RNA sequence: UCUGGGCGUGGGCCUGUAAUCUAGUUACUUGGAGGCCAGGGUGCGGGAUUUCGUGGGACCGGGAAUUCUGGCAUAUGGGUGCUCAUGUUGAUCGGGCGUCCACGCUAAGCACGGCGCCGAUAUGGAUGACCUGUCGGAGGGCGGGUUGUCUAGGUCGUCUAAGGAGGGGCGGACCGGCCCAGGGGGGAAACCCAGCAGGCAAAAGUCCCCGCGUGGUGCGGUAGCGGGAUAGCGCCUGUAAAUGGUGUCCAUCUGACAGCCUGGUUGACGCGUGAAGACCGCCUCCUUU
Numbered sequence: 001u002c003u004g005g006g007c008g009u010g011g012g013c014c015u016g017u018a019a020u021c022u023a024g025u026u027a028c029u030u031g032g033a034g035g036c037c038a039g040g041g042u043g044c045g046g047g048a049u050u051u052c053g054u055g056g057g058a059c060c061g062g063g064a065a066u067u068c069u070g071g072c073a074u075a076u077g078g079g080u081g082c083u084c085a086u087g088u089u090g091a092u093c094g095g096g097c098g099u100c101c102a103c104g105c106u107a108a109g110c111a112c113g114g115c116g117c118c119g120a121u122a123u124g125g126a127u128g129a130c131c132u133g134u135c136g137g138a139g140g141g142c143g144g145g146u147u148g149u150c151u152a153g154g155u156c157g158u159c160u161a162a163g164g165a166g167g168g169g170c171g172g173a174c175c176g177g178c179c180c181a182g183g184g185g186g187g188a189a190a191c192c193c194a195g196c197a198g199g200c201a202a203a204a205g206u207c208c209c210c211g212c213g214u215g216g217u218g219c220g221g222u223a224g225c226g227g228g229a230u231a232g233c234g235c236c237u238g239u240a241a242a243u244g245g246u247g248u249c250c251a252u253c254u255g256a257c258a259g260c261c262u263g264g265u266u267g268a269c270g271c272g273u274g275a276a277g278a279c280c281g282c283c284u285c286c287u288u289u
Stems, first nucleotide, its partner, number of pairs: 001011002020033003038287004043282004049277007057266007068259003072255002075252006083245004088240001093238007100228002103226005109219004114214004118157004123152013158164002166209005177200003184193003
Annotation
The record is a 289-nucleotide sequence from Schistosoma margrebowiei, which matches "Metazoan signal recognition particle RNA" in Rfam. The match comes from Rfam's covariance-model search (215 bits). The organism belongs to Schistosoma, within Eukaryota. About the family: The signal recognition particle (SRP) is a universally conserved ribonucleoprotein. It is involved in the co-translational targeting of proteins to membranes.